[Rfam]
RNA sequence: AACAAUUUGUCCCGCUUCCCGCGGCGUUUUAAAAAAAAAAAGUCCCGAUUUUAUCUUUCCAAAAAUCGGGACUUUUUUAAAACGCCGCGGGAAGCGGGACAAAUUGUUAA
Numbered sequence: 001a002a003c004a005a006u007u008u009g010u011c012c013c014g015c016u017u018c019c020c021g022c023g024g025c026g027u028u029u030u031a032a033a034a035a036a037a038a039a040a041a042g043u044c045c046c047g048a049u050u051u052u053a054u055c056u057u058u059c060c061a062a063a064a065a066u067c068g069g070g071a072c073u074u075u076u077u078u079a080a081a082a083c084g085c086c087g088c089g090g091g092a093a094g095c096g097g098g099a100c101a102a103a104u105u106g107u108u109a110a
Stems, first nucleotide, its partner, number of pairs: 001108035

The record is a 110-nucleotide RNA from Pipistrellus kuhlii, which matches "mir-9261 microRNA precursor family" in Rfam. The base pairs follow the family's consensus structure, which was predicted with RNAalifold. Its family is annotated with miRNA-mediated post-transcriptional gene silencing and RISC complex in the Gene Ontology.